[Rfam]
Overview
The record is a 66-nucleotide sequence from Dissostichus mawsoni, which matches "mir-30 microRNA precursor family" in Rfam. The base pairs follow the family's consensus structure, which was predicted with PFOLD. Rfam 15.1 lists 3,879 matches to the family in 647 species. Rfam's curators write: This family consists of the mammalian microRNA (miRNA) precursor mir-30a. Animal miRNAs are transcribed as ~70nt precursors and subsequently processed by the Dicer enzyme to give a ~22nt product. In this case the mature sequence comes from both the 3' (miR-30) and 5' (mir-97-6) arms of the precursor. The extents of the hairpin precursors are not generally known and are estimated based on hairpin prediction. The products are thought to have regulatory roles through complementarity to mRNA. The involvement of Dicer in miRNA processing suggests a relationship with the phenomenon of RNA interference. miRNAs are numbered based on the sequence of the mature RNA.

RNA sequence: UCAGUCCAUGUAAACAUCCUACACUCAGCUGUGAGAGGCUGAGGGAAGGUUGUUUACUUGGACUGG
Number, nucleotide and partner (000 for none) at each position: 001u000002c065003a064004g063005u062006c061007c000008a059009u000010g057011u056012a055013a054014a053015c052016a051017u000018c049019c048020u047021a000022c045023a000024c043025u042026c041027a040028g039029c038030u037031g000032u000033g000034a000035g000036a000037g030038g029039c028040u027041g026042a025043g024044g000045g022046a000047a020048g019049g018050u000051u016052g015053u014054u013055u012056a011057c010058u000059u008060g000061g006062a005063c004064u003065g002066g000